[Rfam]
RNA sequence: UGGCCGCAGAAUAAGUUAUUCUGUGGCCACUUUGAGUUACGAUAAUUACUAUACUAAUUUACGAGAUUAUGGUAACUCCCUCAUAAGUGAUUUACUAUAGCAUUAUGGUAAGUAUCAUAUUGAAUUAUAGUAACCCAUAUAUCGUAAAUGUGUAUUAUCAUUAUCGUAAAUUGGUACAAAUAUUAAAUAAAUUAAGAUGGCUAUAGAAUAAGUUAUUUGUGGCUG
Numbered sequence: 001u002g003g004c005c006g007c008a009g010a011a012u013a014a015g016u017u018a019u020u021c022u023g024u025g026g027c028c029a030c031u032u033u034g035a036g037u038u039a040c041g042a043u044a045a046u047u048a049c050u051a052u053a054c055u056a057a058u059u060u061a062c063g064a065g066a067u068u069a070u071g072g073u074a075a076c077u078c079c080c081u082c083a084u085a086a087g088u089g090a091u092u093u094a095c096u097a098u099a100g101c102a103u104u105a106u107g108g109u110a111a112g113u114a115u116c117a118u119a120u121u122g123a124a125u126u127a128u129a130g131u132a133a134c135c136c137a138u139a140u141a142u143c144g145u146a147a148a149u150g151u152g153u154a155u156u157a158u159c160a161u162u163a164u165c166g167u168a169a170a171u172u173g174g175u176a177c178a179a180a181u182a183u184u185a186a187a188u189a190a191a192u193u194a195a196g197a198u199g200g201c202u203a204u205a206g207a208a209u210a211a212g213u214u215a216u217u218u219g220u221g222g223c224u225g
Stems, first nucleotide, its partner, number of pairs: 001225008010217005016211014031196003037190003043185004050178001052176011065165003069161003074155001081146001087142003092137001093132008103122001108116001

About this RNA: Rfam assigns this 225-nucleotide RNA from Miscanthus lutarioriparius to the family "MIR6217 microRNA precursor family". The source organism's lineage runs through Eukaryota, Viridiplantae, Streptophyta, Panicoideae and Miscanthus. The match comes from Rfam's covariance-model search (114 bits).